[Rfam]
RNA sequence: UAACUCCGUCUGAGUAGCUAUUAGCCACAGGCUCAGUAUCUAGGCUUGCUAUAAGGCACUGUGCCGAAGUCGUCGGUUGACAUGUAGUCAAGAAAGGUAACGAGGAUGAAAGGGACUGGCUGUCCCGCCCUGAACGAGAUUGAGCUCCGAAAUUUGGUUUCUGUUGGAAUCUGCCCAAGGUGUUUGCAUGCUGGAAGGCAAUGCUUGCUGACGCGUUUUUGGCGAGCGGCAGUGGGAGUCCCGGAGUCGAAGAUCC
Numbered sequence: 001u002a003a004c005u006c007c008g009u010c011u012g013a014g015u016a017g018c019u020a021u022u023a024g025c026c027a028c029a030g031g032c033u034c035a036g037u038a039u040c041u042a043g044g045c046u047u048g049c050u051a052u053a054a055g056g057c058a059c060u061g062u063g064c065c066g067a068a069g070u071c072g073u074c075g076g077u078u079g080a081c082a083u084g085u086a087g088u089c090a091a092g093a094a095a096g097g098u099a100a101c102g103a104g105g106a107u108g109a110a111a112g113g114g115a116c117u118g119g120c121u122g123u124c125c126c127g128c129c130c131u132g133a134a135c136g137a138g139a140u141u142g143a144g145c146u147c148c149g150a151a152a153u154u155u156g157g158u159u160u161c162u163g164u165u166g167g168a169a170u171c172u173g174c175c176c177a178a179g180g181u182g183u184u185u186g187c188a189u190g191c192u193g194g195a196a197g198g199c200a201a202u203g204c205u206u207g208c209u210g211a212c213g214c215g216u217u218u219u220u221g222g223c224g225a226g227c228g229g230c231a232g233u234g235g236g237a238g239u240c241c242c243g244g245a246g247u248c249g250a251a252g253a254u255c256c
Stems, first nucleotide, its partner, number of pairs: 010036005018030002021027001022225001024223002039092001043089004047084002141250001142248001144247006166241003171238002173199003179192003204236007212228003
Dot-bracket structure: .........(((((...((.([.[[.).)).)))))..(...((((((..................................)).))))..)................................................((.((((((................(((..(((((...(((........)))....)))....(((((((.(((.......]].]))).))))))))))))))))))).)......
RNA: Group II catalytic intron D1-D4-6